[Rfam]
RNA sequence: UCCAUGGCUCACCCAGUAUUCAGUGUAAGGUCUGUGUGAUCAAAGUACAGCUACAUCUGAUUACUGGGUCAGUAAUGACAUUA
Numbered sequence: 001u002c003c004a005u006g007g008c009u010c011a012c013c014c015a016g017u018a019u020u021c022a023g024u025g026u027a028a029g030g031u032c033u034g035u036g037u038g039a040u041c042a043a044a045g046u047a048c049a050g051c052u053a054c055a056u057c058u059g060a061u062u063a064c065u066g067g068g069u070c071a072g073u074a075a076u077g078a079c080a081u082u083a
Stems, first nucleotide, its partner, number of pairs: 013067006020060003023056005032050004

A member of the RNA family "mir-221 microRNA precursor family" from Hucho hucho, 83 nucleotides long.
The literature on the family includes a 2008 paper in J Virol by Yao et al., "MicroRNA profile of Marek's disease virus-transformed T-cell line MSB-1: predominance of virus-encoded microRNAs".
Its family is annotated with miRNA-mediated post-transcriptional gene silencing and RISC complex in the Gene Ontology.
A search with the family's covariance model found it, with a score of 58 bits.